[Rfam]
RNA sequence: UCUUUAUCGUGUUCAGUGCAGUACAUAGAGG
Numbered sequence: 001u002c003u004u005u006a007u008c009g010u011g012u013u014c015a016g017u018g019c020a021g022u023a024c025a026u027a028g029a030g031g
Stems, first nucleotide, its partner, number of pairs: 001031007009024005014018001
The record is a 31-nucleotide sequence from Diabrotica virgifera, which matches "Iron response element II" in Rfam. Gene Ontology term of the family: response to iron ion. Rfam describes the family as follows. IRE, TFRC, SLC40A1, SDHB, SLC11A2, CDC42BPA, ACO2, ALAS2_H.SAPIENS, CDC14A, EPAS1, ALAS2, qoxD, Hao1, NDUFS1, transferrin, Aconitate. A reference for the family is Koeller et al. (1989), "A cytosolic protein binds to structural elements within the iron regulatory region of the transferrin receptor mRNA", Proc Natl Acad Sci U S A. Taxonomically the source falls in Diabrotica virgifera (Eukaryota, Bilateria, Eumetabola, Luperini).